[Rfam]
RNA sequence: AUGAGGGUGACCGAAUGUGGGGAGGAAGCGUGGAGCGUAAAUCGUGAGCCGAUGGACAAAAAUCGCAUAGAAGGCGCUGCCAAGCAGGGCGAGCGGGCAUCGAUCCGCGAAGCUCUUGUGACCAAGGCGAGGUGGCGUAGAUGCGGCGGUUGUACGAUGAAGGAGUGCGUUC
Dot-bracket structure: ((..((....))..))...........(.(((...(....(((((((((((...........((((((.....(((.(.((..((.((((..((((........))))...))))...........))..)).).)))..))))))))))).))))))....)....))).)
Numbered sequence: 001a002u003g004a005g006g007g008u009g010a011c012c013g014a015a016u017g018u019g020g021g022g023a024g025g026a027a028g029c030g031u032g033g034a035g036c037g038u039a040a041a042u043c044g045u046g047a048g049c050c051g052a053u054g055g056a057c058a059a060a061a062a063u064c065g066c067a068u069a070g071a072a073g074g075c076g077c078u079g080c081c082a083a084g085c086a087g088g089g090c091g092a093g094c095g096g097g098c099a100u101c102g103a104u105c106c107g108c109g110a111a112g113c114u115c116u117u118g119u120g121a122c123c124a125a126g127g128c129g130a131g132g133u134g135g136c137g138u139a140g141a142u143g144c145g146g147c148g149g150u151u152g153u154a155c156g157a158u159g160a161a162g163g164a165g166u167g168c169g170u171u172c
Stems, first nucleotide, its partner, number of pairs: 001016002005012002028172001030170003036163001041158006047151005063146006074138003078134001080132002084128002087115004093108004
The record is a 172-nucleotide RNA from Polaromonas sp. JS666, which matches "Group II catalytic intron D1-D4-3" in Rfam. For this family Rfam cites "Control of branch-site choice by a group II intron" (Chu et al., EMBO J, 2001). Pairs were carried over by alignment from the consensus structure. Group II introns are found in rRNA, tRNA and mRNA of organelles in fungi, plants and protists, and also in mRNA in bacteria.